[Rfam]
RNA sequence: AAACCGCAAGUGUGCAGUCGCUGUAUGGUAUAACCAUGCAGAGGAAAGUCCGAACUUCACAGGGCAGGGUGCCGGUCGAGAACGUUUGUUCAAGACCGGGGGCAGCGGCGCAAGCUGUCUGUCACAGAGAGUGCAACAGAAAGCAAACCGCUCCGGCUUAAACCGGAGUAAGGGUGAAAAGGGGGUGUAAGAGACCACCAGGCAGGUCAGCAAUGCCCUGCGCUAUGAAAACCUCCCCGAAGCAAGGCCAAAUAAGGAAGCAUUUCCUGCAAGGGAAGAAGGGUUGCCCGCCCAAUGUUUCCGGGUAGGCCGCAUCAGAUAAAUGGCUGCAACAUCACUACUUGAUGGUGAUGGACAGAAUUCGGCUUACAGCUUCGGUUU
Numbered sequence: 001a002a003a004c005c006g007c008a009a010g011u012g013u014g015c016a017g018u019c020g021c022u023g024u025a026u027g028g029u030a031u032a033a034c035c036a037u038g039c040a041g042a043g044g045a046a047a048g049u050c051c052g053a054a055c056u057u058c059a060c061a062g063g064g065c066a067g068g069g070u071g072c073c074g075g076u077c078g079a080g081a082a083c084g085u086u087u088g089u090u091c092a093a094g095a096c097c098g099g100g101g102g103c104a105g106c107g108g109c110g111c112a113a114g115c116u117g118u119c120u121g122u123c124a125c126a127g128a129g130a131g132u133g134c135a136a137c138a139g140a141a142a143g144c145a146a147a148c149c150g151c152u153c154c155g156g157c158u159u160a161a162a163c164c165g166g167a168g169u170a171a172g173g174g175u176g177a178a179a180a181g182g183g184g185g186u187g188u189a190a191g192a193g194a195c196c197a198c199c200a201g202g203c204a205g206g207u208c209a210g211c212a213a214u215g216c217c218c219u220g221c222g223c224u225a226u227g228a229a230a231a232c233c234u235c236c237c238c239g240a241a242g243c244a245a246g247g248c249c250a251a252a253u254a255a256g257g258a259a260g261c262a263u264u265u266c267c268u269g270c271a272a273g274g275g276a277a278g279a280a281g282g283g284u285u286g287c288c289c290g291c292c293c294a295a296u297g298u299u300u301c302c303g304g305g306u307a308g309g310c311c312g313c314a315u316c317a318g319a320u321a322a323a324u325g326g327c328u329g330c331a332a333c334a335u336c337a338c339u340a341c342u343u344g345a346u347g348g349u350g351a352u353g354g355a356c357a358g359a360a361u362u363c364g365g366c367u368u369a370c371a372g373c374u375u376c377g378g379u380u381u
Stems, first nucleotide, its partner, number of pairs: 001381006008375004012370001013331007021041009046368003050365005055242004062289004067238003071235001072099005100125001101123004126234002131232002134227002148173002150169007181199002184196003201223001202221005208215002246311004256302006281293004
The record is a 381-nucleotide RNA sequence from Chlorobaculum tepidum, which matches "Bacterial RNase P class A" in Rfam. NCBI's taxonomy places the organism under Bacteria, Chlorobiota, Chlorobiales, Chlorobiaceae, Chlorobaculum. The family's consensus secondary structure is taken from published work.